[Rfam]
RNA sequence: GGUUUAGGGGAAACGAUGAUCCCUUUGCAUCUCUGAUGACGGGCGCAAGAGCGAAGGGGGAGUGAGUAGCGCGACCGGCCCCGUAGAGC
Numbered sequence: 001g002g003u004u005u006a007g008g009g010g011a012a013a014c015g016a017u018g019a020u021c022c023c024u025u026u027g028c029a030u031c032u033c034u035g036a037u038g039a040c041g042g043g044c045g046c047a048a049g050a051g052c053g054a055a056g057g058g059g060g061a062g063u064g065a066g067u068a069g070c071g072c073g074a075c076c077g078g079c080c081c082c083g084u085a086g087a088g089c
Base pairs, nucleotide, nucleotide: 003086004085007082008081009080010079013063014062021058022057023056024055025054026053027052028051041076042075043072044071045070046069
RNA: c-di-GMP-II-GAG riboswitch aptamer